Small nucleolar RNA Z157/R69/R10: a 100-nucleotide sequence from Nicotiana attenuata. Its family is annotated with RNA processing and nucleolus in the Gene Ontology. The organism belongs to Nicotiana, within Eukaryota. On this family, see Chen et al., Nucleic Acids Res 2003: "The high diversity of snoRNAs in plants: identification and comparative study of 120 snoRNA genes from Oryza sativa".
RNA sequence: CUUUGUGCGGUGAUGAUACAAUUUGUGGACUAGAGUUUCUGAUCUGGGGUUUCUAACCCCUUAUGGUGGAAGACAAACCCUUGGCUGUCUGAGCACACUC
Numbered sequence: 001c002u003u004u005g006u007g008c009g010g011u012g013a014u015g016a017u018a019c020a021a022u023u024u025g026u027g028g029a030c031u032a033g034a035g036u037u038u039c040u041g042a043u044c045u046g047g048g049g050u051u052u053c054u055a056a057c058c059c060c061u062u063a064u065g066g067u068g069g070a071a072g073a074c075a076a077a078c079c080c081u082u083g084g085c086u087g088u089c090u091g092a093g094c095a096c097a098c099u100c
Stems, first nucleotide, its partner, number of pairs: 004097005036072004043065001045063004